The record is a 48-nucleotide sequence from Streptomyces echinoruber, which matches "raiA-hairpin RNA" in Rfam. The match comes from Rfam's covariance-model search (64 bits). The base pairs follow the family's consensus structure, which is taken from published work. The organism belongs to Streptomyces, within Bacteria.

RNA sequence: CACCGAGUCCGAGGUUCCGGGGCUCACCGGAGCUUGGUGCAAGUGGGA
Numbered sequence: 001c002a003c004c005g006a007g008u009c010c011g012a013g014g015u016u017c018c019g020g021g022g023c024u025c026a027c028c029g030g031a032g033c034u035u036g037g038u039g040c041a042a043g044u045g046g047g048a
Base pairs, nucleotide, nucleotide: 013034014033015032016031017030018029019028020027